[Rfam]
RNA sequence: AAUUCAAGCUAGGGGUGCCCAAACCAAAAUUUGGGCUGAGAUCACACCCUGAGAACCUGAUUCCGGCUAAUACCGGCGGAGGGAAGCUAACUUUCAAGGAA
Number, nucleotide and partner (000 for none) at each position: 001a000002a000003u000004u000005c000006a000007a088008g087009c086010u085011a050012g049013g048014g047015g000016u044017g036018c035019c034020c033021a032022a031023a030024c000025c000026a000027a000028a000029a000030u023031u022032u021033g020034g019035g018036c017037u000038g000039a000040g000041a000042u000043c000044a016045c000046a000047c014048c013049c012050u011051g000052a000053g000054a000055a000056c082057c081058u080059g000060a000061u000062u000063c076064c075065g074066g073067c000068u000069a000070a000071u000072a000073c066074c065075g064076g063077c000078g000079g000080a058081g057082g056083g000084a000085a010086g009087c008088u007089a000090a000091c000092u000093u000094u000095c000096a000097a000098g000099g000100a000101a000